[Rfam]
RNA sequence: UCUGCACUUCAUUGUACGUCACUCUGGAUAAGAGCAUCUGCUAAAUGACUGUAA
Number, nucleotide and partner (000 for none) at each position: 001u000002c000003u000004g000005c000006a000007c000008u000009u000010c000011a000012u000013u043014g041015u040016a039017c000018g000019u000020c000021a000022c034023u033024c032025u031026g000027g000028a000029u000030a000031a025032g024033a023034g022035c000036a000037u000038c000039u016040g015041c014042u000043a013044a000045a000046u000047g000048a000049c000050u000051g000052u000053a000054a000
RNA: UnaL2 LINE 3' element